[Rfam]
Nucleotides: 191
Base pairs, nucleotide, nucleotide: 007026008025009024011022012021013020014019048067049066050065051064052063053062069084070083071082072081073080074079113144114143115142116141117140118139119138120137124135125134126133127132147184148183149182150181151180152179154176155175156174157173158172
Number, partner (000 for none) and nucleotide at each position: 001000a002000u003000c004000g005000c006000u007026u008025c009024u010000c011022g012021g013020c014019c015000c016000u017000a018000u019014g020013g021012c022011u023000a024009a025008g026007a027000u028000c029000a030000a031000a032000g033000u034000g035000u036000a037000g038000u039000a040000u041000c042000u043000g044000u045000u046000c047000u048067u049066a050065u051064c052063a053062g054000c055000u056000u057000a058000a059000u060000a061000u062053c063052u064051g065050a066049u067048a068000c069084g070083a071082c072081c073080c074079g075000c076000a077000u078000g079074c080073g081072g082071g083070u084069c085000c086000a087000g088000u089000a090000u091000a092000u093000u094000a095000a096000a097000c098000u099000g100000a101000u102000u103000u104000u105000u106000g107000g108000a109000a110000c111000u112000u113144g114143a115142c116141g117140g118139a119138g120137g121000u122000u123000a124135g125134g126133g127132g128000c129000u130000u131000g132127c133126u134125c135124c136000a137120c138119c139118u140117c141116u142115g143114u144113c145000g146000c147184g148183g149182g150181u151180u152179g153000g154176c155175c156174u157173g158172g159000u160000a161000u162000u163000g164000c165000a166000a167000u168000a169000c170000c171000u172158c173157c174156a175155g176154g177000a178000u179152c180151g181150g182149c183148c184147c185000a186000c187000c188000a189000c190000a191000a